[Rfam]
RNA sequence: AUAGCAGAGAUUGUGUGUAUCGGCAUUGUGCUGUGAUUGAUGUACUUUUGUCGAAAGAGUUCUCUGCAAAAUUGAUUUUUGAGGAAAAUGGGCAUUUGUGUUUCAUCAAUUUCACUUGGAAAUUUCAACAAUCAUUUUCCCCACAUUU
Numbered sequence: 001a002u003a004g005c006a007g008a009g010a011u012u013g014u015g016u017g018u019a020u021c022g023g024c025a026u027u028g029u030g031c032u033g034u035g036a037u038u039g040a041u042g043u044a045c046u047u048u049u050g051u052c053g054a055a056a057g058a059g060u061u062c063u064c065u066g067c068a069a070a071a072u073u074g075a076u077u078u079u080u081g082a083g084g085a086a087a088a089u090g091g092g093c094a095u096u097u098g099u100g101u102u103u104c105a106u107c108a109a110u111u112u113c114a115c116u117u118g119g120a121a122a123u124u125u126c127a128a129c130a131a132u133c134a135u136u137u138u139c140c141c142c143a144c145a146u147u148u
Stems, first nucleotide, its partner, number of pairs: 004067007015045006081142001083140009096128003